Record summary
Shown here is an 86-nucleotide RNA from Carex littledalei, a member of the family "small nucleolar RNA snoR114". For this family Rfam cites "Mining small RNA sequencing data: a new approach to identify small nucleolar RNAs in Arabidopsis" (Chen and Wu, Nucleic Acids Res, 2009). Its family is annotated with RNA processing and nucleolus in the Gene Ontology.
RNA sequence: GAACAAUGAUGACUCUGCACUAUUGAUGAUUGGGGUCAUCACAACCGUCUGACUCAUUAUCAGACGACGCUUGCACUACUGAGUUC
Numbered sequence: 001g002a003a004c005a006a007u008g009a010u011g012a013c014u015c016u017g018c019a020c021u022a023u024u025g026a027u028g029a030u031u032g033g034g035g036u037c038a039u040c041a042c043a044a045c046c047g048u049c050u051g052a053c054u055c056a057u058u059a060u061c062a063g064a065c066g067a068c069g070c071u072u073g074c075a076c077u078a079c080u081g082a083g084u085u086c
Stems, first nucleotide, its partner, number of pairs: 001086004

It scores 49 bits against the family's covariance model.